The family of this 258-nucleotide RNA sequence from Syntrophobacter fumaroxidans is "Bacterial large signal recognition particle RNA". The base pairs follow the family's consensus structure, which is taken from published work. The organism belongs to Syntrophobacter fumaroxidans, within Bacteria. It is annotated as a non-coding RNA gene.
[Rfam]
RNA sequence: UCGUGCUAGACGGGGAGUUAGCGGUGCCCUGUGGCCCGAAAUCCGCUCAGCGGGGUUGAAUCCCCUUUGAAGGGCUCGUGCCUGGCCGGCUGUUAUCAUUUCUGGUGCCGAUUGGACACCUCGCAACAGACGAAUACGAACCCCGUCAGGUCCGGAAGGAAGCAGCGGUAAGUAUCACCGGCUGUGUCGUGGUCUACUCUAAUCAGGUCCCAGGAAGUCGGGCAGCCUGGUCACGCAGGUUCGACAAAGGGUGCACGG
Numbered sequence: 001u002c003g004u005g006c007u008a009g010a011c012g013g014g015g016a017g018u019u020a021g022c023g024g025u026g027c028c029c030u031g032u033g034g035c036c037c038g039a040a041a042u043c044c045g046c047u048c049a050g051c052g053g054g055g056u057u058g059a060a061u062c063c064c065c066u067u068u069g070a071a072g073g074g075c076u077c078g079u080g081c082c083u084g085g086c087c088g089g090c091u092g093u094u095a096u097c098a099u100u101u102c103u104g105g106u107g108c109c110g111a112u113u114g115g116a117c118a119c120c121u122c123g124c125a126a127c128a129g130a131c132g133a134a135u136a137c138g139a140a141c142c143c144c145g146u147c148a149g150g151u152c153c154g155g156a157a158g159g160a161a162g163c164a165g166c167g168g169u170a171a172g173u174a175u176c177a178c179c180g181g182c183u184g185u186g187u188c189g190u191g192g193u194c195u196a197c198u199c200u201a202a203u204c205a206g207g208u209c210c211c212a213g214g215a216a217g218u219c220g221g222g223c224a225g226c227c228u229g230g231u232c233a234c235g236c237a238g239g240u241u242c243g244a245c246a247a248a249g250g251g252u253g254c255a256c257g258g
Stems, first nucleotide, its partner, number of pairs: 001258006009057003012030004017025003035054004063251007072242005084231001086229001091224002094220001097217001099215001102213002104210002110204007118193003122189002124186002127184003131180001134175004143168004151160003